Notes:
The record is a 114-nucleotide RNA from Oryzias javanicus, which matches "Potassium channel RNA editing signal" in Rfam. Gene Ontology term of the family: adenosine to inosine editing. It scores 87 bits against the family's covariance model. The source organism's lineage runs through Eukaryota, Clupeocephala, Euacanthomorphacea, Percomorphaceae and Oryzias. Pairs were carried over by alignment from the consensus structure, which is taken from published work. Rfam 15.1 lists 14,095 matches to the family in 1,000 species. About the family: This family represents a group of sequences related to the human potassium channel Kv1.1 hairpin element which directs the efficient modification of an adenosine to inosine by an adenosine deaminase acting on RNA (ADAR). The ADAR modification causes an isoleucine/valine recoding event which lies in the ion-conducting pore of the potassium channel. It is thought that this editing event targets the process of fast inactivation and allows a more rapid recovery from inactivation at negative potentials.
RNA sequence: UUCAGGUAUGGCGACAUGGUGCCAAAAACAAUUGUGGGGAAGGUGUUUGGGUCCAUAUGCUCUCUGAGCGGGGUGCUGGUCAUCGCCCUGCCUGUUCCUGUCAUCGUGUCAAAC
Numbered sequence: 001u002u003c004a005g006g007u008a009u010g011g012c013g014a015c016a017u018g019g020u021g022c023c024a025a026a027a028a029c030a031a032u033u034g035u036g037g038g039g040a041a042g043g044u045g046u047u048u049g050g051g052u053c054c055a056u057a058u059g060c061u062c063u064c065u066g067a068g069c070g071g072g073g074u075g076c077u078g079g080u081c082a083u084c085g086c087c088c089u090g091c092c093u094g095u096u097c098c099u100g101u102c103a104u105c106g107u108g109u110c111a112a113a114c
Stems, first nucleotide, its partner, number of pairs: 002113001005110001007108005013102004018097002021095002037077002040074001049063003